[Rfam]
RNA sequence: GUUCAGAAAUCGCUUGGCAGUGGCGGGGGACCCAAAUUUCGGAUCCGCAAGGAUCCUAGGGGUUAAGUGGUCAGAUUCCAUACGGAAGCUGACUGCCGAGUGACUCCCACUCGAAUCCGACAGCUCACCUCGCAGGCAUUGGGAGAGGUAAU
Numbered sequence: 001g002u003u004c005a006g007a008a009a010u011c012g013c014u015u016g017g018c019a020g021u022g023g024c025g026g027g028g029g030a031c032c033c034a035a036a037u038u039u040c041g042g043a044u045c046c047g048c049a050a051g052g053a054u055c056c057u058a059g060g061g062g063u064u065a066a067g068u069g070g071u072c073a074g075a076u077u078c079c080a081u082a083c084g085g086a087a088g089c090u091g092a093c094u095g096c097c098g099a100g101u102g103a104c105u106c107c108c109a110c111u112c113g114a115a116u117c118c119g120a121c122a123g124c125u126c127a128c129c130u131c132g133c134a135g136g137c138a139u140u141g142g143g144a145g146a147g148g149u150a151a152u
Stems, first nucleotide, its partner, number of pairs: 002022001004020001023133006033059001060118003068095007098112004
Dot-bracket structure: .(.(...............).)((((((....(.........................)(((.....(((((((..............)))))))..((((.......))))...))).........))))))...................
Rfam assigns this 152-nucleotide sequence from Paeniglutamicibacter cryotolerans to the family "c-di-AMP riboswitch aptamer (ydaO/yuaA leader)". The organism belongs to Paeniglutamicibacter, within Bacteria.